A member of the RNA family "DUF3800-VI RNA", 55 nucleotides long. It is annotated as a cis-regulatory element.
RNA sequence: GGUUGGGAGAGCUAUAUUGUUGGUUCGUUGGAUGAUUUGAUCAUCCACCCGGCUG
Numbered sequence: 001g002g003u004u005g006g007g008a009g010a011g012c013u014a015u016a017u018u019g020u021u022g023g024u025u026c027g028u029u030g031g032a033u034g035a036u037u038u039g040a041u042c043a044u045c046c047a048c049c050c051g052g053c054u055g
Stems, first nucleotide, its partner, number of pairs: 001054007009026006029047007